[Rfam]
Rfam assigns this 81-nucleotide RNA sequence from Phyllostomus discolor to the family "mir-511 microRNA precursor family".
RNA sequence: CAGUUACCCAACGUGACUUUUGCUCUGUAGUCAGUAAAUAUUUAUUUGUGAAUGUGUAGCAAAAGACAGAAUGGGGACCCA
Numbered sequence: 001c002a003g004u005u006a007c008c009c010a011a012c013g014u015g016a017c018u019u020u021u022g023c024u025c026u027g028u029a030g031u032c033a034g035u036a037a038a039u040a041u042u043u044a045u046u047u048g049u050g051a052a053u054g055u056g057u058a059g060c061a062a063a064a065g066a067c068a069g070a071a072u073g074g075g076g077a078c079c080c081a
Stems, first nucleotide, its partner, number of pairs: 003079001005077001008074003014068002017065008026056004031051003035048004
A reference for the family is Linsen et al. (2010), "Small RNA expression and strain specificity in the rat", BMC Genomics. The match comes from Rfam's covariance-model search (86 bits). Pairs were carried over by alignment from the consensus structure, which was predicted with RNAalifold.